[Rfam]
RNA sequence: GUGACAGAAGAGAGUGAGCACACGUGGUUGUUUCCUUGCAUAAAUACUAAGCUUGUGCUUGGAGCUACGUGUGCUCACUUCUCUUUCUGUCAC
Numbered sequence: 001g002u003g004a005c006a007g008a009a010g011a012g013a014g015u016g017a018g019c020a021c022a023c024g025u026g027g028u029u030g031u032u033u034c035c036u037u038g039c040a041u042a043a044a045u046a047c048u049a050a051g052c053u054u055g056u057g058c059u060u061g062g063a064g065c066u067a068c069g070u071g072u073g074c075u076c077a078c079u080u081c082u083c084u085u086u087c088u089g090u091c092a093c
Base pairs, nucleotide, nucleotide: 001093002092003091004090005089006088007087008086009085010083011082012081013079014078015077016076017075018074019073020072021071023069024068025067026066027065